A member of the RNA family "Repression of heat shock gene expression (ROSE) element" from Sphingomonas rhizophila, 94 nucleotides long. For this family Rfam cites "A mRNA-based thermosensor controls expression of rhizobial heat shock genes" (Nocker et al., Nucleic Acids Res, 2001). Rfam describes the family as follows. This family represents a 5' UTR cis-regulatory element found in heat shock mRNAs and is known as the ROSE (repression of heat shock gene expression) element. The ROSE element is a negative regulator of heat shock gene expression. The secondary structure is thought to be regulated by temperature. This regulation blocks access to the ribosome binding site under normal conditions. Rfam 15.1 lists 381 matches to the family in 262 species. Rfam classes the family as an RNA thermoregulator. Taxonomically the source falls in Sphingomonas (Bacteria, Pseudomonadati, Sphingomonadales, Sphingomonadaceae).
RNA sequence: CCGACUGCCUGAUGGGGUCGGUGACGGAGAGCCGCGGCUUUCGGUCGCUGCUCACCGCCUGGAUGUUGCUCAACGGAGGACAUGACAAUGCGGA
Numbered sequence: 001c002c003g004a005c006u007g008c009c010u011g012a013u014g015g016g017g018u019c020g021g022u023g024a025c026g027g028a029g030a031g032c033c034g035c036g037g038c039u040u041u042c043g044g045u046c047g048c049u050g051c052u053c054a055c056c057g058c059c060u061g062g063a064u065g066u067u068g069c070u071c072a073a074c075g076g077a078g079g080a081c082a083u084g085a086c087a088a089u090g091c092g093g094a
Stems, first nucleotide, its partner, number of pairs: 001021006008015002027055001029053004034048003056092003060088001063083005069078003